[Rfam]
A member of the RNA family "c-di-AMP riboswitch aptamer (ydaO/yuaA leader)" from Sutcliffiella cohnii, 144 nucleotides long. It scores 83 bits against the family's covariance model.
RNA sequence: AAAAACCUUAUGUUGAAUCUUAUUGUAAGAGCGGGGGAACCAAAUCGAAACGUUUAUUCGUUUCUAGGGGUGUAUCGUUAUGAACGAAGAGGACUCUCAUCCUCUAAUCCGACAGCUAACCUCGUAAACAAAUUGAGAGAAGGG
Numbered sequence: 001a002a003a004a005a006c007c008u009u010a011u012g013u014u015g016a017a018u019c020u021u022a023u024u025g026u027a028a029g030a031g032c033g034g035g036g037g038a039a040c041c042a043a044a045u046c047g048a049a050a051c052g053u054u055u056a057u058u059c060g061u062u063u064c065u066a067g068g069g070g071u072g073u074a075u076c077g078u079u080a081u082g083a084a085c086g087a088a089g090a091g092g093a094c095u096c097u098c099a100u101c102c103u104c105u106a107a108u109c110c111g112a113c114a115g116c117u118a119a120c121c122u123c124g125u126a127a128a129c130a131a132a133u134u135g136a137g138a139g140a141a142g143g144g
Stems, first nucleotide, its partner, number of pairs: 011130004018030003031125006041067001068110003076086004089104004
The organism belongs to Sutcliffiella, within Bacteria. The pairing is the family consensus, mapped onto this sequence.